The record is a 76-nucleotide RNA sequence from Azotobacter chroococcum, which matches "narK RNA" in Rfam. Lineage of the source: Bacteria > Pseudomonadati > Pseudomonadota > Pseudomonadaceae > Azotobacter chroococcum. The match comes from Rfam's covariance-model search (49 bits). Pairs were carried over by alignment from the consensus structure, which is taken from published work.

[Rfam]
RNA sequence: GGCAUAUCGCUUGCUUCGUAUCCGGCAGCCUCGGCGGUCCCAACGGCGGGACCCCACUCACCGACAAUGGCGUCGC
Numbered sequence: 001g002g003c004a005u006a007u008c009g010c011u012u013g014c015u016u017c018g019u020a021u022c023c024g025g026c027a028g029c030c031u032c033g034g035c036g037g038u039c040c041c042a043a044c045g046g047c048g049g050g051a052c053c054c055c056a057c058u059c060a061c062c063g064a065c066a067a068u069g070g071c072g073u074c075g076c
Base pairs, nucleotide, nucleotide: 033054034053037052038051039050040049041048